[Rfam]
RNA sequence: GCAGGGAAGAGGAAGAAACAGAGGUCCUAAGAGCAGUAGGAAUGGGAACAUGAAGGAAUAAGAAUGCUCUAAUUUUUUCUCUAGCAUUAGAGGACAUUUGCAUUCUUGCAUUCCUGAUGCCUCUCAUUCCUAUGGUUCUUAGGUGCUCCUUCCUCUUCCUUCUGCUC
Numbered sequence: 001g002c003a004g005g006g007a008a009g010a011g012g013a014a015g016a017a018a019c020a021g022a023g024g025u026c027c028u029a030a031g032a033g034c035a036g037u038a039g040g041a042a043u044g045g046g047a048a049c050a051u052g053a054a055g056g057a058a059u060a061a062g063a064a065u066g067c068u069c070u071a072a073u074u075u076u077u078u079c080u081c082u083a084g085c086a087u088u089a090g091a092g093g094a095c096a097u098u099u100g101c102a103u104u105c106u107u108g109c110a111u112u113c114c115u116g117a118u119g120c121c122u123c124u125c126a127u128u129c130c131u132a133u134g135g136u137u138c139u140u141a142g143g144u145g146c147u148c149c150u151u152c153c154u155c156u157u158c159c160u161u162c163u164g165c166u167c
Stems, first nucleotide, its partner, number of pairs: 009158005015152003021148003026143009037132011049119003053115001055114005
Shown here is a 167-nucleotide RNA from Panicum virgatum, a member of the family "MIR2118 microRNA precursor family". The base pairs follow the family's consensus structure, which was predicted with RNAalifold. Lineage of the source: Eukaryota > Streptophytina > Euphyllophyta > Poaceae > Panicum sect. Hiantes.